[Rfam]
RNA sequence: ACUCCAUCUACCCAGUGUUUGGCCUACCUGUUCAGGACUGCCAAACUGUACAGUAGUCUGCAUAUUGCUUAGGCUAGGCU
Numbered sequence: 001a002c003u004c005c006a007u008c009u010a011c012c013c014a015g016u017g018u019u020u021g022g023c024c025u026a027c028c029u030g031u032u033c034a035g036g037a038c039u040g041c042c043a044a045a046c047u048g049u050a051c052a053g054u055a056g057u058c059u060g061c062a063u064a065u066u067g068c069u070u071a072g073g074c075u076a077g078g079c080u
Stems, first nucleotide, its partner, number of pairs: 013067006020060003024056003028053004033048002
RNA: mir-199 microRNA precursor family
Organism: Carlito syrichta